About this RNA:
The family of this 173-nucleotide RNA from Salipaludibacillus neizhouensis is "Group II catalytic intron D1-D4-3". On this family, see Chu et al., EMBO J 2001: "Control of branch-site choice by a group II intron". Lineage of the source: Bacteria > Bacillota > Bacilli > Bacillaceae > Salipaludibacillus. A search with the family's covariance model found it, with a score of 146 bits.
RNA sequence: UCCAUCGUGAGGUGGAAUCUGAAGGAAGCCGGAAGCAAAAUCCUGAGGUGACGAACAGAAAUUGGAUAUAAGGCUGAAUAGAGAAGGAUAAGUCUGCAAUACAAGAUGAAGUCCUAUACUACCCAAAUCUCUUACAGUAAAUCCAGCACCUAUAUGGGAGGAAAGUGGUUAGA
Numbered sequence: 001u002c003c004a005u006c007g008u009g010a011g012g013u014g015g016a017a018u019c020u021g022a023a024g025g026a027a028g029c030c031g032g033a034a035g036c037a038a039a040a041u042c043c044u045g046a047g048g049u050g051a052c053g054a055a056c057a058g059a060a061a062u063u064g065g066a067u068a069u070a071a072g073g074c075u076g077a078a079u080a081g082a083g084a085a086g087g088a089u090a091a092g093u094c095u096g097c098a099a100u101a102c103a104a105g106a107u108g109a110a111g112u113c114c115u116a117u118a119c120u121a122c123c124c125a126a127a128u129c130u131c132u133u134a135c136a137g138u139a140a141a142u143c144c145a146g147c148a149c150c151u152a153u154a155u156g157g158g159a160g161g162a163a164a165g166u167g168g169u170u171a172g173a
Stems, first nucleotide, its partner, number of pairs: 001016006029172001031170002035166002041159005046151005062146006073138003080132005086114004092107004